Description
A member of the RNA family "Ma3 gene ribosomal frameshift signal" from Octodon degus, 60 nucleotides long. Its family is annotated with translational frameshifting in the Gene Ontology. The family's consensus secondary structure is taken from published work. On this family, see Wills et al., J Biol Chem 2006: "A functional -1 ribosomal frameshift signal in the human paraneoplastic Ma3 gene". The source organism's lineage runs through Eukaryota, Bilateria, Rodentia, Hystricomorpha and Octodon.
[Rfam]
RNA sequence: GGGAAACGGGAGAAGGGCUGGGGCCUCGAGCCUGCCCAAGCCCUAGGCAGCCCAGGCUCA
Numbered sequence: 001g002g003g004a005a006a007c008g009g010g011a012g013a014a015g016g017g018c019u020g021g022g023g024c025c026u027c028g029a030g031c032c033u034g035c036c037c038a039a040g041c042c043c044u045a046g047g048c049a050g051c052c053c054a055g056g057c058u059c060a
Base pairs, nucleotide, nucleotide: 014044015043016042017041018040019039021037022036023035024034028059029058030057031056032055
The family's RNA type in Rfam is frameshift element.